[Rfam]
RNA sequence: AGGUAAUGUCUACUGUACCUUUAUCAUUGUAGGCACUCGGCCAUGCGGUGGGUCUAAUGGACCUUAGCGGUUAACGCGAGCGUAUGGAGAUGAGGCAGGGUUAGAAACCCU
Numbered sequence: 001a002g003g004u005a006a007u008g009u010c011u012a013c014u015g016u017a018c019c020u021u022u023a024u025c026a027u028u029g030u031a032g033g034c035a036c037u038c039g040g041c042c043a044u045g046c047g048g049u050g051g052g053u054c055u056a057a058u059g060g061a062c063c064u065u066a067g068c069g070g071u072u073a074a075c076g077c078g079a080g081c082g083u084a085u086g087g088a089g090a091u092g093a094g095g096c097a098g099g100g101u102u103a104g105a106a107a108c109c110c111u
Stems, first nucleotide, its partner, number of pairs: 001020004007035007036094004041087007050064006067077002097111005